ALIL pseudoknot: a 117-nucleotide sequence. The match comes from Rfam's covariance-model search (86 bits).

RNA sequence: GGCUUAUUUUGCGAAGGCGGAGUACGACCGUCUGUGGAAAAAAUAAUGCCGCUGCUGGCUACCCUCAGCGGUAGUCACGGGGUCGGACCGGUAUGUCAUGAGCUGAAUAUCGCCCCG
Numbered sequence: 001g002g003c004u005u006a007u008u009u010u011g012c013g014a015a016g017g018c019g020g021a022g023u024a025c026g027a028c029c030g031u032c033u034g035u036g037g038a039a040a041a042a043a044u045a046a047u048g049c050c051g052c053u054g055c056u057g058g059c060u061a062c063c064c065u066c067a068g069c070g071g072u073a074g075u076c077a078c079g080g081g082g083u084c085g086g087a088c089c090g091g092u093a094u095g096u097c098a099u100g101a102g103c104u105g106a107a108u109a110u111c112g113c114c115c116c117g
Stems, first nucleotide, its partner, number of pairs: 016032005078117005089112002092109003096105001
It is annotated as a cis-regulatory element.